[Rfam]
RNA sequence: CCGGGCUGAGGUAGGAGGUUGUAUAGUUGAGGAAGACACCCAAGGAGAUCACUAUACGGCCUCCUAGCUUUCCCCAG
Numbered sequence: 001c002c003g004g005g006c007u008g009a010g011g012u013a014g015g016a017g018g019u020u021g022u023a024u025a026g027u028u029g030a031g032g033a034a035g036a037c038a039c040c041c042a043a044g045g046a047g048a049u050c051a052c053u054a055u056a057c058g059g060c061c062u063c064c065u066a067g068c069u070u071u072c073c074c075c076a077g
Base pairs, nucleotide, nucleotide: 001077003075004074005073008070009069010068012066013065014064015063016062017061018060019059020058021057022056023055024054025053026052027051040047
let-7 microRNA precursor family: a 77-nucleotide RNA sequence from Nomascus leucogenys. The source organism's lineage runs through Eukaryota, Metazoa, Vertebrata, Simiiformes and Nomascus. Rfam describes the family as follows. This family represents the microRNAs (miRNA) let-7 and mir-98. let-7 was identified from a study of developmental timing in C. elegans, and was later shown to be part of a much larger class of non-coding RNAs termed miRNAs. A reference for the family is Liu et al. (2018), "Cryo-EM Structure of Human Dicer and Its Complexes with a Pre-miRNA Substrate", Cell. Its Rfam clan is "let-7 microRNA precursor clan". A search with the family's covariance model found it, with a score of 60 bits. Gene Ontology terms of the family: RISC complex and miRNA-mediated post-transcriptional gene silencing.